[Rfam]
RNA: Group II catalytic intron D1-D4-3
RNA sequence: UAAAUCGUGAGAGAUAACCCGGAAAAAGCCGCGAAAAUUCUUUAUAAUAAAUAGAUGAACAAAAACAUCAUAUUAGGCGUAGGCUGAAGACGAGCUAGUACAAGAUAGCGAAGUCAUGGGAUCUAACGGCCACCGAAAAUGAUGCAGUUGUGCAAUGAAAGUUAAUGCU
Numbered sequence: 001u002a003a004a005u006c007g008u009g010a011g012a013g014a015u016a017a018c019c020c021g022g023a024a025a026a027a028g029c030c031g032c033g034a035a036a037a038u039u040c041u042u043u044a045u046a047a048u049a050a051a052u053a054g055a056u057g058a059a060c061a062a063a064a065a066c067a068u069c070a071u072a073u074u075a076g077g078c079g080u081a082g083g084c085u086g087a088a089g090a091c092g093a094g095c096u097a098g099u100a101c102a103a104g105a106u107a108g109c110g111a112a113g114u115c116a117u118g119g120g121a122u123c124u125a126a127c128g129g130c131c132a133c134c135g136a137a138a139a140u141g142a143u144g145c146a147g148u149u150g151u152g153c154a155a156u157g158a159a160a161g162u163u164a165a166u167g168c169u
Stems, first nucleotide, its partner, number of pairs: 001016002005012002028169001030167002043161001047156002049151001050149003054145001066144006078135002082131004089115003094109004